[Rfam]
Nucleotides: 104
Base pairs, nucleotide, nucleotide: 006099007098008097010095011094012093013092020047022045023044049084050083051082052080053079056078057077058076063071
Number, partner (000 for none) and nucleotide at each position: 001000c002000g003000a004000a005000c006099c007098c008097g009000c010095g011094c012093g013092g014000g015000a016000g017000a018000g019000c020047c021000a022045g023044g024000c025000a026000g027000c028000a029000c030000c031000u032000c033000a034000u035000g036000g037000u038000g039000c040000g041000c042000a043000g044023c045022c046000g047020g048000c049084g050083c051082c052080g053079a054000a055000g056078g057077a058076g059000c060000a061000a062000g063071c064000c065000c066000u067000c068000c069000c070000c071063g072000g073000a074000a075000u076058c077057u078056c079053u080052c081000a082051g083050g084049c085000a086000u087000c088000c089000a090000u091000a092013c093012c094011g095010c096000a097008c098007g099006g100000g101000c102000u103000a104000g
Rfam assigns this 104-nucleotide sequence from Streptomyces sp. 846.5 to the family "Glycine riboswitch aptamer". The organism belongs to Streptomyces, within Bacteria. The match comes from Rfam's covariance-model search (58 bits).